[Rfam]
Annotation
leuA-Halobacteria RNA: a 53-nucleotide sequence.

RNA sequence: UCGUUCGGAGGAUAGAGGAAGUCGCCUUACCGCGGCUGGCCGCGAAAUUCUCC
Number, nucleotide and partner (000 for none) at each position: 001u000002c000003g000004u000005u000006c000007g000008g000009a000010g000011g000012a000013u000014a000015g000016a000017g000018g000019a000020a037021g036022u035023c034024g033025c032026c000027u000028u000029a000030c000031c000032g025033c024034g023035g022036c021037u020038g000039g000040c000041c000042g000043c000044g000045a000046a000047a000048u000049u000050c000051u000052c000053c000